Shown here is a 125-nucleotide RNA sequence from Jaculus jaculus, a member of the family "Small nucleolar RNA SNORA33". About the family: ACA33 is a member of the H/ACA class of snoRNA that guide the sites of modification of uridines to pseudouridines.
RNA sequence: AAGCCAAUCAAUCUGCUUCUCUGAAUCUUUCUGCAGAAAUUUAGAAACAGCUGGCAAUAGUGAUGCCAUUUUAUGAGCCUUAACGACAACUGAAGUCAUUACAAUCCCUCAAAAUGACUAUAAUA
Dot-bracket structure: .((........(((((................))))).............))............(.((........(...(((.(((.......))).)))...).........)).).......
The source organism's lineage runs through Eukaryota, Vertebrata, Tetrapoda, Boreoeutheria and Jaculus. Rfam 15.1 lists 1,176 matches to the family in 522 species.